[Rfam]
RNA sequence: UGACCUCGGAUCAGGUAGGAAUACCCGCUGAACUUAAGCAUAUCAAUAAGCGGAGGAAAAGAAACCAACAGGGAUUGCCUCAGUAACGGCGAGUGAAGCGGCAACAGCUCAAAUUUGAAAUCUGGCUCCUUCGGGGCCCGAGUUGUAAUUUGCAGAGGAUGCGUCGGGUACGGGUGCCUUCCGAGUUCCCUGGAACGGGACGCCAUAGAGGGUGAGAGCCCCGUCUGGUAGGACACCCAGCCCGUGUGACGCUCCCUCGACGAGUCGAGUAGUUUGGGAAUGCUGCUCUAACGGGAGGUAUACUCCUUCCAAGGCUAAAUACCGGCUGGAGACCGAUAGCGCACAAGUAGAGUGAUCGAAAGAUGAAAAGCACUUUGAAAAGAGAGUCAAACAGCACGUGAAAUUGUUAAAAGGGAAG
Numbered sequence: 001u002g003a004c005c006u007c008g009g010a011u012c013a014g015g016u017a018g019g020a021a022u023a024c025c026c027g028c029u030g031a032a033c034u035u036a037a038g039c040a041u042a043u044c045a046a047u048a049a050g051c052g053g054a055g056g057a058a059a060a061g062a063a064a065c066c067a068a069c070a071g072g073g074a075u076u077g078c079c080u081c082a083g084u085a086a087c088g089g090c091g092a093g094u095g096a097a098g099c100g101g102c103a104a105c106a107g108c109u110c111a112a113a114u115u116u117g118a119a120a121u122c123u124g125g126c127u128c129c130u131u132c133g134g135g136g137c138c139c140g141a142g143u144u145g146u147a148a149u150u151u152g153c154a155g156a157g158g159a160u161g162c163g164u165c166g167g168g169u170a171c172g173g174g175u176g177c178c179u180u181c182c183g184a185g186u187u188c189c190c191u192g193g194a195a196c197g198g199g200a201c202g203c204c205a206u207a208g209a210g211g212g213u214g215a216g217a218g219c220c221c222c223g224u225c226u227g228g229u230a231g232g233a234c235a236c237c238c239a240g241c242c243c244g245u246g247u248g249a250c251g252c253u254c255c256c257u258c259g260a261c262g263a264g265u266c267g268a269g270u271a272g273u274u275u276g277g278g279a280a281u282g283c284u285g286c287u288c289u290a291a292c293g294g295g296a297g298g299u300a301u302a303c304u305c306c307u308u309c310c311a312a313g314g315c316u317a318a319a320u321a322c323c324g325g326c327u328g329g330a331g332a333c334c335g336a337u338a339g340c341g342c343a344c345a346a347g348u349a350g351a352g353u354g355a356u357c358g359a360a361a362g363a364u365g366a367a368a369a370g371c372a373c374u375u376u377g378a379a380a381a382g383a384g385a386g387u388c389a390a391a392c393a394g395c396a397c398g399u400g401a402a403a404u405u406g407u408u409a410a411a412a413g414g415g416a417a418g
Base pairs, nucleotide, nucleotide: 024055025053026052027051028050029049035042036041065072066071076103077102078101079100086094087093106316107315108314109313112150113149114148115147118144119143121141122140124138125137126136127135155258156257157255158254159253162251163250164249165248167242168241169240172237173236175233177231180228181227185201187200188199189198190197204208211221212220267288268287269286270285271284272283273282293310294309295308296307297306350357351356373384374383375382376381
Rfam assigns this 418-nucleotide part of an RNA from Plectosphaerella cucumerina to the family "Eukaryotic large subunit ribosomal RNA".
The source organism's lineage runs through Eukaryota, Sordariomycetes, Hypocreomycetidae, Glomerellales and Plectosphaerella.
The base pairs follow the family's consensus structure, which is taken from published work.